[Rfam]
RNA sequence: ACCGUGUACUUACCUACUAUAUAGUAGGAGAAAUACACGUAUCUAAACUACUAUAUAGUAGGUAAGUACACGAUUU
Numbered sequence: 001a002c003c004g005u006g007u008a009c010u011u012a013c014c015u016a017c018u019a020u021a022u023a024g025u026a027g028g029a030g031a032a033a034u035a036c037a038c039g040u041a042u043c044u045a046a047a048c049u050a051c052u053a054u055a056u057a058g059u060a061g062g063u064a065a066g067u068a069c070a071c072g073a074u075u076u
Stems, first nucleotide, its partner, number of pairs: 001074001003072013017058011031044001033042003

Annotation
Rfam assigns this 76-nucleotide sequence from Ameiurus melas to the family "mir-7563 microRNA precursor family". Gene Ontology terms of the family: miRNA-mediated post-transcriptional gene silencing and RISC complex. The match comes from Rfam's covariance-model search (81 bits). NCBI's taxonomy places the organism under Eukaryota, Opisthokonta, Gnathostomata, Teleostomi, Ameiurus.